A member of the RNA family "sodF sRNA" from Streptomyces sp. SID5785, 84 nucleotides long. The pairing is the family consensus, mapped onto this sequence. The family has 6 seed sequences and 336 matches in Rfam 15.1. A reference for the family is Kim et al. (2014), "Inverse regulation of Fe- and Ni-containing SOD genes by a Fur family regulator Nur through small RNA processed from 3'UTR of the sodF mRNA", Nucleic Acids Res.

RNA sequence: AUGUCCUGCUCGUGAUCGUCUUCUCACCCUUCACCGGCAGGCAAGCCGAGGGCUCCCGCCGACCUCGCGUCGGCGGGAGCCCUU
Dot-bracket structure: .((.((((((.((((..(.........)..)))).))))))))....((((((((((((((((.....))))))))))))))))